Shown here is an 89-nucleotide RNA from Marinilactibacillus sp. 15R, a member of the family "SAM-III riboswitch aptamer (SMK box)". Lineage of the source: Bacteria > Bacillati > Bacilli > Carnobacteriaceae > Marinilactibacillus. The literature on the family includes a 2007 paper in Proc Natl Acad Sci U S A by Fuchs et al., "S-adenosylmethionine directly inhibits binding of 30S ribosomal subunits to the SMK box translational riboswitch RNA".

RNA sequence: UAGGUUUACAAUGAAUUCCCGAUAGGACGGCCACAGACCAGGUCGGAAGCCUUGUAACCGAUACUGAAACAGGGGGAAUACAACAAAUG
Numbered sequence: 001u002a003g004g005u006u007u008a009c010a011a012u013g014a015a016u017u018c019c020c021g022a023u024a025g026g027a028c029g030g031c032c033a034c035a036g037a038c039c040a041g042g043u044c045g046g047a048a049g050c051c052u053u054g055u056a057a058c059c060g061a062u063a064c065u066g067a068a069a070c071a072g073g074g075g076g077a078a079u080a081c082a083a084c085a086a087a088u089g
Base pairs, nucleotide, nucleotide: 016078017077018076019075020074024052025051026050028045029044030043031042032041058073059072
A search with the family's covariance model found it, with a score of 54 bits.